[Rfam]
RNA sequence: GCCGAACCCGGCGAUCGCCGGGGCGGGGGAACCACGCACGUGGGGCGAGUCCCGACACACCCGUCGGGUAGGGCUGCUCCGGCCCGAGCCCGUCAGCUAACCCCGCAGGC
Numbered sequence: 001g002c003c004g005a006a007c008c009c010g011g012c013g014a015u016c017g018c019c020g021g022g023g024c025g026g027g028g029g030a031a032c033c034a035c036g037c038a039c040g041u042g043g044g045g046c047g048a049g050u051c052c053c054g055a056c057a058c059a060c061c062c063g064u065c066g067g068g069u070a071g072g073g074c075u076g077c078u079c080c081g082g083c084c085c086g087a088g089c090c091c092g093u094c095a096g097c098u099a100a101c102c103c104c105g106c107a108g109g110c
Stems, first nucleotide, its partner, number of pairs: 001110003007022005023106006033042002043091003051068004071085004
RNA: c-di-AMP riboswitch aptamer (ydaO/yuaA leader)
Organism: Egicoccus halophilus